Alphaproteobacterial ar15: a 96-nucleotide sequence from Mesorhizobium intechi. Its family is annotated with protein binding in the Gene Ontology. It scores 44 bits against the family's covariance model. Clan: suhB sRNA clan. The organism belongs to Mesorhizobium, within Bacteria. The family has 61 seed sequences and 316 matches in Rfam 15.1.

RNA sequence: AUCCGCUCGGUGUUUUCCUCCCAUUUCGCCGAGCGGUGUUCCCCUCUGAAGGUUAUGACCUUCUUUUUGGCCGGGCCGGUUUCGCGCCCGGCCUUU
Dot-bracket structure: (.(((.((((((..............)))))).))))..........((((((....)))))).......((((((((....)).)))))).....
Numbered sequence: 001a002u003c004c005g006c007u008c009g010g011u012g013u014u015u016u017c018c019u020c021c022c023a024u025u026u027c028g029c030c031g032a033g034c035g036g037u038g039u040u041c042c043c044c045u046c047u048g049a050a051g052g053u054u055a056u057g058a059c060c061u062u063c064u065u066u067u068u069g070g071c072c073g074g075g076c077c078g079g080u081u082u083c084g085c086g087c088c089c090g091g092c093c094u095u096u
Stems, first nucleotide, its partner, number of pairs: 001037001003036003007032006048063006071091006077084002